[Rfam]
RNA sequence: UGAGGAAGUCGGGGCUCGGAUCCCCUCCCCGAGCCUAGGGUAACUCUUAAGGUGGAGGGGAA
Numbered sequence: 001u002g003a004g005g006a007a008g009u010c011g012g013g014g015c016u017c018g019g020a021u022c023c024c025c026u027c028c029c030c031g032a033g034c035c036u037a038g039g040g041u042a043a044c045u046c047u048u049a050a051g052g053u054g055g056a057g058g059g060g061a062a
Base pairs, nucleotide, nucleotide: 008041009040010039012036013035014034015033016031018029019028022060023059024058025057026056027055